[Rfam]
RNA sequence: CUGCAGCUACGGUGACAUGGUGCCGGAAACGAUUGCCGGCAAGAUCGUCGGUGGCGUUUGCUCGCUGAGCGGUGUGCUGGUCAUCGCGCUACCUGUACCUGUAAUCGUGUCCAAC
Numbered sequence: 001c002u003g004c005a006g007c008u009a010c011g012g013u014g015a016c017a018u019g020g021u022g023c024c025g026g027a028a029a030c031g032a033u034u035g036c037c038g039g040c041a042a043g044a045u046c047g048u049c050g051g052u053g054g055c056g057u058u059u060g061c062u063c064g065c066u067g068a069g070c071g072g073u074g075u076g077c078u079g080g081u082c083a084u085c086g087c088g089c090u091a092c093c094u095g096u097a098c099c100u101g102u103a104a105u106c107g108u109g110u111c112c113a114a115c
Stems, first nucleotide, its partner, number of pairs: 002114001006111001008109005015102003019098001022096002038078004051063001